RNA sequence: AGUAGAACCAAGUUGAGUGGGCUGUUUUCUUACCUGUAGCCAAGAACAGGGGUCCUGUAGUUUGCCACCUGAAUGAGGGCCUGGCU
Numbered sequence: 001a002g003u004a005g006a007a008c009c010a011a012g013u014u015g016a017g018u019g020g021g022c023u024g025u026u027u028u029c030u031u032a033c034c035u036g037u038a039g040c041c042a043a044g045a046a047c048a049g050g051g052g053u054c055c056u057g058u059a060g061u062u063u064g065c066c067a068c069c070u071g072a073a074u075g076a077g078g079g080c081c082u083g084g085c086u
Stems, first nucleotide, its partner, number of pairs: 001086003004082001008078002012074003016070002018067002021065002024062001026060002032053004037048001

A member of the RNA family "mir-571 microRNA precursor family" from Rhinopithecus roxellana, 86 nucleotides long.
Its family is annotated with RISC complex and miRNA-mediated post-transcriptional gene silencing in the Gene Ontology.
The organism belongs to Rhinopithecus, within Eukaryota.
Pairs were carried over by alignment from the consensus structure, which was predicted with RNAalifold.